[Rfam]
RNA sequence: UACCUGGUUGAUUCUGCCAGUAGUCAUAUGCUUGUCUCAAAGAUUAAGCCAUGCAUGUCUAAGUAUAAACACGUUAUACUGUGAAACUGCGAAUGGCUCAUUAAAUCAGUUAUAGUUUAUUUGAUGGUUUUUGCUACAUGGAUAACUGUGGUAAUUCUAGAGCUAAUACAUGCGUAUAAGCCCCGACUUCUGGAAGGGGUGUAUUUAUUAGAAUAAAAAUCAACACUGUUGGUGAAUCAUGAUAACUUCUCGGAUCGCAUGGCCUCGUGCUGGCGAUACUUCAUUCAAAUAUCUGCCCUAUCAACUGUCGAUGGUAGGAUAGAGGCCUACCAUGGUUGCAACGGGUAACGGGGAAUAAGGGUUCGAUUCCGGAGAGGGAGCCUGAGAAACGGCUACCACAUCCAAGGAAGGCAGCAGGCGCGCAAAUUACCCAAUCCCGACACGGGGAGGUAGUGACAAUAUGUAACAAUAUACGGCUUUAUCGUCGUAUAAUUGGAAUGAGUACAAUUUAAAUCCCUUAACGAGGAACAAUUGGAGGGCAAGUCUGGUGCCAGCAGCCGCGGUAAUUCCAGCUCCAAUAGCGUAUAUUAAAGUUGUUG
Numbered sequence: 001u002a003c004c005u006g007g008u009u010g011a012u013u014c015u016g017c018c019a020g021u022a023g024u025c026a027u028a029u030g031c032u033u034g035u036c037u038c039a040a041a042g043a044u045u046a047a048g049c050c051a052u053g054c055a056u057g058u059c060u061a062a063g064u065a066u067a068a069a070c071a072c073g074u075u076a077u078a079c080u081g082u083g084a085a086a087c088u089g090c091g092a093a094u095g096g097c098u099c100a101u102u103a104a105a106u107c108a109g110u111u112a113u114a115g116u117u118u119a120u121u122u123g124a125u126g127g128u129u130u131u132u133g134c135u136a137c138a139u140g141g142a143u144a145a146c147u148g149u150g151g152u153a154a155u156u157c158u159a160g161a162g163c164u165a166a167u168a169c170a171u172g173c174g175u176a177u178a179a180g181c182c183c184c185g186a187c188u189u190c191u192g193g194a195a196g197g198g199g200u201g202u203a204u205u206u207a208u209u210a211g212a213a214u215a216a217a218a219a220u221c222a223a224c225a226c227u228g229u230u231g232g233u234g235a236a237u238c239a240u241g242a243u244a245a246c247u248u249c250u251c252g253g254a255u256c257g258c259a260u261g262g263c264c265u266c267g268u269g270c271u272g273g274c275g276a277u278a279c280u281u282c283a284u285u286c287a288a289a290u291a292u293c294u295g296c297c298c299u300a301u302c303a304a305c306u307g308u309c310g311a312u313g314g315u316a317g318g319a320u321a322g323a324g325g326c327c328u329a330c331c332a333u334g335g336u337u338g339c340a341a342c343g344g345g346u347a348a349c350g351g352g353g354a355a356u357a358a359g360g361g362u363u364c365g366a367u368u369c370c371g372g373a374g375a376g377g378g379a380g381c382c383u384g385a386g387a388a389a390c391g392g393c394u395a396c397c398a399c400a401u402c403c404a405a406g407g408a409a410g411g412c413a414g415c416a417g418g419c420g421c422g423c424a425a426a427u428u429a430c431c432c433a434a435u436c437c438c439g440a441c442a443c444g445g446g447g448a449g450g451u452a453g454u455g456a457c458a459a460u461a462u463g464u465a466a467c468a469a470u471a472u473a474c475g476g477c478u479u480u481a482u483c484g485u486c487g488u489a490u491a492a493u494u495g496g497a498a499u500g501a502g503u504a505c506a507a508u509u510u511a512a513a514u515c516c517c518u519u520a521a522c523g524a525g526g527a528a529c530a531a532u533u534g535g536a537g538g539g540c541a542a543g544u545c546u547g548g549u550g551c552c553a554g555c556a557g558c559c560g561c562g563g564u565a566a567u568u569c570c571a572g573c574u575c576c577a578a579u580a581g582c583g584u585a586u587a588u589u590a591a592a593g594u595u596g597u598u599g
Stems, first nucleotide, its partner, number of pairs: 004020005022589003026586007034462002037459001041454001042421001048419003052416003057090002062088003069082002097374003107295003112290002116288002122283003137172004146162002149159003180200005187193002205245006219233004255276004260272004297345003304336003311333008349371004353364004376397002379394003399410001401408002427452001429451003435447005467495003470491008502522002504519001506518001532578006545572004554561002